Rfam assigns this 75-nucleotide RNA from Frankliniella occidentalis to the family "mir-252 microRNA precursor family".
The base pairs follow the family's consensus structure, which was predicted with RNAalifold.
Gene Ontology terms of the family: miRNA-mediated post-transcriptional gene silencing and RISC complex.
NCBI's taxonomy places the organism under Eukaryota, Opisthokonta, Eumetazoa, Thripoidea, Frankliniella.
[Rfam]
Nucleotides: 075
Base pairs, nucleotide, nucleotide: 001075002074004072005071006070007069011065012064013063014062015061016060019057024053025052026051027050028049029048030047
Number, partner (000 for none) and nucleotide at each position: 001075c002074c003000c004072g005071a006070g007069u008000g009000c010000u011065a012064a013063g014062u015061a016060g017000u018000a019057g020000u021000g022000c023000c024053g025052u026051a027050g028049g029048u030047g031000a032000c033000u034000g035000c036000a037000u038000u039000u040000g041000a042000c043000u044000c045000c046000a047030c048029a049028c050027c051026u052025g053024c054000g055000c056000a057019c058000g059000u060016c061015u062014g063013c064012u065011u066000u067000a068000c069007a070006u071005u072004c073000u074002g075001g